[Rfam]
RNA sequence: GGACCUUGAGGUCCUGGUUGGGGGAGAAGGAGAACCCAAGGGAAGUUGACUUGGAGGCCCUUCCUUUCUGUCCCCACAGGACUUUGGGCUGG
Numbered sequence: 001g002g003a004c005c006u007u008g009a010g011g012u013c014c015u016g017g018u019u020g021g022g023g024g025a026g027a028a029g030g031a032g033a034a035c036c037c038a039a040g041g042g043a044a045g046u047u048g049a050c051u052u053g054g055a056g057g058c059c060c061u062u063c064c065u066u067u068c069u070g071u072c073c074c075c076a077c078a079g080g081a082c083u084u085u086g087g088g089c090u091g092g
Stems, first nucleotide, its partner, number of pairs: 003090001005088012019076005025069002027066006035056001036054005
The record is a 92-nucleotide sequence from Pipistrellus kuhlii, which matches "mir-4667 microRNA precursor family" in Rfam. A search with the family's covariance model found it, with a score of 72 bits. The family's consensus secondary structure was predicted with RNAalifold. Taxonomically the source falls in Pipistrellus (Eukaryota, Euteleostomi, Theria, Laurasiatheria).